Background:
The record is a 182-nucleotide RNA sequence from Thermobifida halotolerans, which matches "Actinobacteria sRNA Ms_IGR-5" in Rfam. Lineage of the source: Bacteria > Actinomycetota > Actinomycetes > Streptosporangiales > Thermobifida. For this family Rfam cites "Identification of small RNAs in Mycobacterium smegmatis using heterologous Hfq" (Li et al., RNA, 2013).

RNA sequence: ACGCGAGAAAGGAGGUGGUCCGAAAGUGAUUUCUUUGCGGACACGCGAGGUGUUCGUCCGCUAGGGCGACCACGAUCGGAUCGCCCUGGCGAAUCCACGGUGGACACCCGGACCCUCGGGUGGCCGGCCUUGUCCGACCGGCCCCGGCGCGAGCCGGACAAGAUGCCCGAGGGUCCGCCCAU
Numbered sequence: 001a002c003g004c005g006a007g008a009a010a011g012g013a014g015g016u017g018g019u020c021c022g023a024a025a026g027u028g029a030u031u032u033c034u035u036u037g038c039g040g041a042c043a044c045g046c047g048a049g050g051u052g053u054u055c056g057u058c059c060g061c062u063a064g065g066g067c068g069a070c071c072a073c074g075a076u077c078g079g080a081u082c083g084c085c086c087u088g089g090c091g092a093a094u095c096c097a098c099g100g101u102g103g104a105c106a107c108c109c110g111g112a113c114c115c116u117c118g119g120g121u122g123g124c125c126g127g128c129c130u131u132g133u134c135c136g137a138c139c140g141g142c143c144c145c146g147g148c149g150c151g152a153g154c155c156g157g158a159c160a161a162g163a164u165g166c167c168c169g170a171g172g173g174u175c176c177g178c179c180c181a182u
Base pairs, nucleotide, nucleotide: 014058015057016056017055018054059091060090061089062088063087064086065085066084067083068082069081071079109177110176111175112174113173114172115171116170117169118168119167120166121165